[Rfam]
RNA sequence: GGGGGUGAUUGGUGUCGACCUAGUCGAUGCCGUCUUUGGUUGCGAGCCGAGGCGCCGCAGGCCUCGUAAAAAAGCGGCAAAAAAAUAAACGCGAACACUCAAAACUACGCGCUCGCGGCUUAAUUAGCCGCCCGUCCAUCUUGCCCCUGCCGGCCGGGCGAGAAUGGGCGUCACCAUGCCGGCUUGGCGUGUGAGGGCGGAACGCCCCCUCCACGUAACCUCUUAGGCGUUCUAGCGUUCUGCUAGCCCGGCCUCCGGGGCGGGCAGACGCGAACUUAAAACGGAGGCUACGCUCGUAGACGCCAGAGGCGAAUCCCUAGGGACGAGAGUUCGAGUCUCUCCACCUCCACUU
Numbered sequence: 001g002g003g004g005g006u007g008a009u010u011g012g013u014g015u016c017g018a019c020c021u022a023g024u025c026g027a028u029g030c031c032g033u034c035u036u037u038g039g040u041u042g043c044g045a046g047c048c049g050a051g052g053c054g055c056c057g058c059a060g061g062c063c064u065c066g067u068a069a070a071a072a073a074g075c076g077g078c079a080a081a082a083a084a085a086u087a088a089a090c091g092c093g094a095a096c097a098c099u100c101a102a103a104a105c106u107a108c109g110c111g112c113u114c115g116c117g118g119c120u121u122a123a124u125u126a127g128c129c130g131c132c133c134g135u136c137c138a139u140c141u142u143g144c145c146c147c148u149g150c151c152g153g154c155c156g157g158g159c160g161a162g163a164a165u166g167g168g169c170g171u172c173a174c175c176a177u178g179c180c181g182g183c184u185u186g187g188c189g190u191g192u193g194a195g196g197g198c199g200g201a202a203c204g205c206c207c208c209c210u211c212c213a214c215g216u217a218a219c220c221u222c223u224u225a226g227g228c229g230u231u232c233u234a235g236c237g238u239u240c241u242g243c244u245a246g247c248c249c250g251g252c253c254u255c256c257g258g259g260g261c262g263g264g265c266a267g268a269c270g271c272g273a274a275c276u277u278a279a280a281a282c283g284g285a286g287g288c289u290a291c292g293c294u295c296g297u298a299g300a301c302g303c304c305a306g307a308g309g310c311g312a313a314u315c316c317c318u319a320g321g322g323a324c325g326a327g328a329g330u331u332c333g334a335g336u337c338u339c340u341c342c343a344c345c346u347c348c349a350c351u352u
Stems, first nucleotide, its partner, number of pairs: 001348007019321005026315003031311010043296005048066005054078005111132001115131005133170006139163008149183006187216005193210001195208003235271005241266004248260002251288004325341005
RNA: transfer-messenger RNA
Organism: Chthonomonas calidirosea